[Rfam]
RNA sequence: UCUGAAACUCGGCGUGGAUACAGAGAAGCUGAGCGUUCAGA
Dot-bracket structure: ((((((..(((((..............)))))...))))))

A member of the RNA family "MAT2A 3'UTR stem loop D" from Myripristis murdjan, 41 nucleotides long. The source organism's lineage runs through Eukaryota, Teleostomi, Teleostei, Ctenosquamata and Myripristis. The match comes from Rfam's covariance-model search (42 bits).